[Rfam]
RNA: L13-Bacteroidia ribosomal protein leader
RNA sequence: CAAGACAGGCGUAAAGGCUUGUCAAAUAGCGUGUUAAUAGCUUUGCUUUUGGCCGGGCGAGUGGUUAGUGAAUC
Numbered sequence: 001c002a003a004g005a006c007a008g009g010c011g012u013a014a015a016g017g018c019u020u021g022u023c024a025a026a027u028a029g030c031g032u033g034u035u036a037a038u039a040g041c042u043u044u045g046c047u048u049u050u051g052g053c054c055g056g057g058c059g060a061g062u063g064g065u066u067a068g069u070g071a072a073u074c
Stems, first nucleotide, its partner, number of pairs: 001021004006016001034068005040062003044059005